Source information:
The record is a 165-nucleotide RNA from Eragrostis curvula, which matches "MIR2118 microRNA precursor family" in Rfam. Pairs were carried over by alignment from the consensus structure, which was predicted with RNAalifold. Rfam 15.1 lists 2,377 matches to the family in 45 species.
RNA sequence: GCAUGGAAGAGGAAGAAAAGUUUCUAAGAGCAGUGGGGAUAGGAACAUGAAGGAAUGCAUAAUGUAUCUUCCAUCUUUACAUUGGAGAUAGAGAUGAGCAUUAAUGUUUUCCUAAUGCCUCCUAUUCCUAUGGCUCUUUGCUUUUCCUUCCCCCUUCUUUAUGGC
Numbered sequence: 001g002c003a004u005g006g007a008a009g010a011g012g013a014a015g016a017a018a019a020g021u022u023u024c025u026a027a028g029a030g031c032a033g034u035g036g037g038g039a040u041a042g043g044a045a046c047a048u049g050a051a052g053g054a055a056u057g058c059a060u061a062a063u064g065u066a067u068c069u070u071c072c073a074u075c076u077u078u079a080c081a082u083u084g085g086a087g088a089u090a091g092a093g094a095u096g097a098g099c100a101u102u103a104a105u106g107u108u109u110u111c112c113u114a115a116u117g118c119c120u121c122c123u124a125u126u127c128c129u130a131u132g133g134c135u136c137u138u139u140g141c142u143u144u145u146c147c148u149u150c151c152c153c154c155u156u157c158u159u160u161a162u163g164g165c
Stems, first nucleotide, its partner, number of pairs: 009156004015150003019145002024140001026138006034130011046117003050113001052112004057107002